[Rfam]
RNA sequence: CUGAGCGCACCGUAAGGUGCGCUGAUCGGCGGACAGGAGUCAGCAGAGGGCAUAGUAGGACAGGACUGUCCGAAGGCC
Dot-bracket structure: ...((((((((....))))))))................((....)).(((......(((((....)))))....)))

A member of the RNA family "Group II catalytic intron D1-D4-1" from Serratia fonticola, 78 nucleotides long.
The family has 237 seed sequences and 2,508 matches in Rfam 15.1.
On this family, see Bonen and Vogel, Trends Genet 2001: "The ins and outs of group II introns".